[Rfam]
RNA sequence: UGUGCCGAUGAUGACCACAUAGACCUGUACUGAAUGUGAAAAUGACUGCAACAAAGAACAUCUAAGGGACCGAGGCAUG
Number, nucleotide and partner (000 for none) at each position: 001u000002g078003u077004g076005c075006c074007g000008a000009u000010g000011a000012u000013g000014a000015c000016c000017a000018c000019a000020u000021a000022g000023a000024c000025c000026u000027g000028u000029a000030c000031u000032g000033a000034a000035u000036g000037u000038g000039a000040a000041a000042a000043u000044g000045a000046c000047u000048g000049c000050a000051a000052c000053a000054a000055a000056g000057a000058a000059c000060a000061u000062c000063u000064a000065a000066g000067g000068g000069a000070c000071c000072g000073a000074g006075g005076c004077a003078u002079g000

Background:
Small nucleolar RNA SNORD25: a 79-nucleotide RNA sequence from Camphora micrantha.